[Rfam]
RNA sequence: UAAGACAAGUAGAAGCACCCGCUUCUCACCUGAUUGACACCCUUUGGGUAGUUGACUGGUCCUUAACUCUGAUAUAGACGAAUGGAGACGUGUGGGUGCAUAUGCCCACACUUUUUUCAUGAA
Numbered sequence: 001u002a003a004g005a006c007a008a009g010u011a012g013a014a015g016c017a018c019c020c021g022c023u024u025c026u027c028a029c030c031u032g033a034u035u036g037a038c039a040c041c042c043u044u045u046g047g048g049u050a051g052u053u054g055a056c057u058g059g060u061c062c063u064u065a066a067c068u069c070u071g072a073u074a075u076a077g078a079c080g081a082a083u084g085g086a087g088a089c090g091u092g093u094g095g096g097u098g099c100a101u102a103u104g105c106c107c108a109c110a111c112u113u114u115u116u117u118c119a120u121g122a123a
Base pairs, nucleotide, nucleotide: 011026012025013024014023015022016021028060029059030058036053037052038051039049040048091110092109093108094107095106096105097104098103
The record is a 123-nucleotide sequence from Virgibacillus salexigens, which matches "Ribosomal protein L20 leader" in Rfam. This family is a putative r-protein leader autoregulatory structure found in B. subtilis and other low-GC Gram-positive bacteria. The base pairs follow the family's consensus structure, which was predicted with CMfinder. For this family Rfam cites "Diverse mechanisms for regulating ribosomal protein synthesis in Escherichia coli" (Zengel and Lindahl, Prog Nucleic Acid Res Mol Biol, 1994). By type it is a cis-regulatory leader.